[Rfam]
RNA: K10 transport/localisation element (TLS)
Organism: Drosophila melanogaster
RNA sequence: GGCUUGAUUGUAUUAUUAAAUUAAUUCUUAAUAACUACAAAUUAAGCC
Numbered sequence: 001g002g003c004u005u006g007a008u009u010g011u012a013u014u015a016u017u018a019a020a021u022u023a024a025u026u027c028u029u030a031a032u033a034a035c036u037a038c039a040a041a042u043u044a045a046g047c048c
Base pairs, nucleotide, nucleotide: 001048002047003046004045005044006043007042008041009040010038011037012036013034014033015032016031017030018029019028